The family of this 117-nucleotide RNA from Cucumis sativus is "Small nucleolar RNA snoR104".
The base pairs follow the family's consensus structure, which was predicted with WAR.
By type it is an H/ACA-box small nucleolar RNA.

[Rfam]
RNA sequence: GGGGAGCAUCCAAAAGCUGUGAUGCUACCUGAUACAAUCUUCCUACAUGAAAUAUCUGUAUUUUCCUGCUUGUUGAAUCGAGCAAAUUCUACAAGCCUCAAAAUGCUAGAAACAUGA
Numbered sequence: 001g002g003g004g005a006g007c008a009u010c011c012a013a014a015a016g017c018u019g020u021g022a023u024g025c026u027a028c029c030u031g032a033u034a035c036a037a038u039c040u041u042c043c044u045a046c047a048u049g050a051a052a053u054a055u056c057u058g059u060a061u062u063u064u065c066c067u068g069c070u071u072g073u074u075g076a077a078u079c080g081a082g083c084a085a086a087u088u089c090u091a092c093a094a095g096c097c098u099c100a101a102a103a104u105g106c107u108a109g110a111a112a113c114a115u116g117a
Base pairs, nucleotide, nucleotide: 001030002029003028005026006025007024008023009022010021055110056109057108068096069095070094071093072092073091075089077087078086